Rfam assigns this 156-nucleotide sequence from Malus domestica to the family "MIR168 microRNA precursor family".

[Rfam]
RNA sequence: UUACUGGCGGUCUCUAAUUCGCUUGGUGCAGGUCGGGAACCGCUUUGCCCUACUUUACCGUGUCUGGGCCUAUGAGCUAGGUGGCUCGAUGUGUAAUCGGCCACAGGGCAAAACAGGUCCCGCCUUGCAUCAACUGAAUCGGAGACCGCGGUGAAG
Numbered sequence: 001u002u003a004c005u006g007g008c009g010g011u012c013u014c015u016a017a018u019u020c021g022c023u024u025g026g027u028g029c030a031g032g033u034c035g036g037g038a039a040c041c042g043c044u045u046u047g048c049c050c051u052a053c054u055u056u057a058c059c060g061u062g063u064c065u066g067g068g069c070c071u072a073u074g075a076g077c078u079a080g081g082u083g084g085c086u087c088g089a090u091g092u093g094u095a096a097u098c099g100g101c102c103a104c105a106g107g108g109c110a111a112a113a114c115a116g117g118u119c120c121c122g123c124c125u126u127g128c129a130u131c132a133a134c135u136g137a138a139u140c141g142g143a144g145a146c147c148g149c150g151g152u153g154a155a156g
Stems, first nucleotide, its partner, number of pairs: 013143002017139004023133010034122005040116001
The organism belongs to Malus, within Eukaryota.
The family's consensus secondary structure was predicted with WAR.
The literature on the family includes a 2005 paper in Plant Cell by Lu et al., "Novel and mechanical stress-responsive MicroRNAs in Populus trichocarpa that are absent from Arabidopsis".